Rfam assigns this 397-nucleotide RNA from Jannaschia seohaensis to the family "Bacterial RNase P class A". A search with the family's covariance model found it, with a score of 266 bits. It is annotated as a ribozyme. Pairs were carried over by alignment from the consensus structure, which is taken from published work. Its family is annotated with tRNA processing, dimeric ribonuclease P complex and ribonuclease P activity in the Gene Ontology.
[Rfam]
Nucleotides: 397
Stems, first nucleotide, its partner, number of pairs: 001393010011382001012346007020035006040380003044377005049235004058279003062231005067081005082096001083094004097226002102224002104220003119166002121162008174192006193215001194213008239302004249293006272285004310329001312327006
Number, partner (000 for none) and nucleotide at each position: 001393g002392c003391g004390g005389g006388g007387g008386g009385c010384u011382g012346g013345a014344c015343g016342g017341c018340c019000g020035c021034g022033g023032g024031g025030a026000g027000c028000g029000a030025u031024c032023u033022c034021c035020g036000a037000g038000g039000a040380a041379a042378g043000u044377c045376c046375g047374g048373a049235c050234u051233c052232c053000a054000u055000g056000g057000a058279g059278a060277g061000a062231c063230g064229g065228u066227g067081c068080c069079g070078g071077g072000u073000a074000a075000c076000g077071c078070c079069c080068g081067g082096g083094c084093g085092a086091g087000g088000c089000a090000a091086c092085u093084c094083g095000a096082c097226g098225g099000a100000a101000a102224g103223c104220g105219c106218c107000a108000c109000a110000g111000a112000g113000a114000a115000c116000a117000g118000a119166c120165c121162g122161c123160u124159c125158c126157g127156g128155g129000u130000c131000g132000g133000g134000c135000c136000u137000c138000g139000g140000c141000c142000c143000g144000c145000a146000c147000u148000u149000c150000g151000g152000u153000g154000c155128c156127c157126c158125g159124g160123a161122g162121c163000a164000a165120g166119g167000g168000u169000g170000a171000a172000a173000c174192g175191g176190u177189g178188g179187g180000g181000u182000a183000a184000g185000a186000g187179c188178c189177c190176a191175c192174c193215g194213g195212g196211g197210g198209g199208g200207c201206g202000g203000c204000a205000a206201c207200g208199u209198c210197c211196c212195c213194c214000g215193c216000a217000c218106g219105g220104c221000a222000a223103g224102c225098c226097c227066c228065a229064c230063c231062g232052g233051g234050a235049g236000c237000a238000a239302u240301g241300c242299c243000g244000a245000a246000u247000a248000g249293g250292g251291a252290u253289c254288g255000c256000g257000c258000g259000u260000g261000c262000g263000c264000a265000a266000g267000c268000g269000c270000a271000g272285g273284g274283g275282g276000u277060c278059u279058c280000c281000g282275c283274c284273c285272c286000a287000g288254c289253g290252g291251u292250c293249c294000g295000g296000g297000u298000u299242g300241g301240c302239a303000g304000c305000u306000c307000g308000a309000g310329g311000a312327c313326g314325c315324g316323a317322a318000g319000c320000g321000a322317u323316u324315c325314g326313c327312g328000g329310c330000c331000c332000a333000g334000a335000c336000g337000a338000a339000u340018g341017g342016u343015c344014g345013u346012c347000a348000u349000g350000g351000c352000g353000g354000g355000u356000c357000c358000g359000c360000c361000c362000g363000c364000c365000a366000u367000a368000c369000a370000g371000a372000a373048u374047c375046c376045g377044g378042c379041u380040u381000a382011c383000a384010g385009g386008c387007c388006c389005c390004c391003c392002g393001c394000a395000c396000u397000c